[Rfam]
Background: This 88-nucleotide sequence from Ziziphus jujuba belongs to the Rfam family "Plastid-psbM 3UTR RNA". Rfam describes the family as follows. Plastid psbM is a non-coding RNA (ncRNA) recognised in plastids. A search with the family's covariance model found it, with a score of 71 bits. By type it is a cis-regulatory element.
RNA sequence: AGAUCGAUAGUAUGGUAGAAAGAAAGAUUCUUAUUUUCUUUCUACCAUGCUAUCUAGUAUUGUCAUUGUACUGUAUAAGGUUUACUGU
Numbered sequence: 001a002g003a004u005c006g007a008u009a010g011u012a013u014g015g016u017a018g019a020a021a022g023a024a025a026g027a028u029u030c031u032u033a034u035u036u037u038c039u040u041u042c043u044a045c046c047a048u049g050c051u052a053u054c055u056a057g058u059a060u061u062g063u064c065a066u067u068g069u070a071c072u073g074u075a076u077a078a079g080g081u082u083u084a085c086u087g088u
Stems, first nucleotide, its partner, number of pairs: 006054021